[Rfam]
RNA sequence: ACAUUCUUUCAGGGCAGGGUGCGGUUUGAAAAAAACCUAUUCCCGAUCGGUGGUGACAAUCCACAAGCGAAAGCUGACUCAGUGAAAUUCUGAGAUCGACGGUAUAGUCCGGUAUAAAGAAAGAAGUG
Dot-bracket structure: ...(((((((......(((......................))).[[((((((.....[[))))..((....))...(((((.......)))))]])).(((....]]))).......)))))))...

The record is a 128-nucleotide RNA from Flexilinea flocculi, which matches "FMN riboswitch aptamer (RFN element)" in Rfam.
The base pairs follow the family's consensus structure, which is taken from published work.
A search with the family's covariance model found it, with a score of 80 bits.
Lineage of the source: Bacteria > Chloroflexota > Anaerolineae > Anaerolineaceae > Flexilinea.